Shown here is a 64-nucleotide RNA sequence from Paracoccus sp. 228, a member of the family "terC RNA".
Rfam classes the family as a cis-regulatory element.
The organism belongs to Paracoccus, within Bacteria.
The match comes from Rfam's covariance-model search (58 bits).

[Rfam]
RNA sequence: CCUGCGGACCGGGCCCCUCUGGCAGCAUGAUCGUCACGAUCGGCUGCGAUGUCGGACCGCAUCG
Numbered sequence: 001c002c003u004g005c006g007g008a009c010c011g012g013g014c015c016c017c018u019c020u021g022g023c024a025g026c027a028u029g030a031u032c033g034u035c036a037c038g039a040u041c042g043g044c045u046g047c048g049a050u051g052u053c054g055g056a057c058c059g060c061a062u063c064g
Base pairs, nucleotide, nucleotide: 006058007057009055010054011053012052022047023046024045025044026043028042029041030040031039032038